[Rfam]
RNA: tRNA
Organism: Histoplasma mississippiense
RNA sequence: GAGGGACUGGCAGAAGGGUAAUGCGUAGCUCUCCUAUGAUUGGACAAAGAUUUCCCUCCUAGCCUGGGAAGUUCGGGACCAAGCUAAGCUAAGAUUGUGGGUUCGAGUCCCACGUUCCUCG
Numbered sequence: 001g002a003g004g005g006a007c008u009g010g011c012a013g014a015a016g017g018g019u020a021a022u023g024c025g026u027a028g029c030u031c032u033c034c035u036a037u038g039a040u041u042g043g044a045c046a047a048a049g050a051u052u053u054c055c056c057u058c059c060u061a062g063c064c065u066g067g068g069a070a071g072u073u074c075g076g077g078a079c080c081a082a083g084c085u086a087a088g089c090u091a092a093g094a095u096u097g098u099g100g101g102u103u104c105g106a107g108u109c110c111c112a113c114g115u116u117c118c119u120c121g
Stems, first nucleotide, its partner, number of pairs: 001120007010024003026091005097113005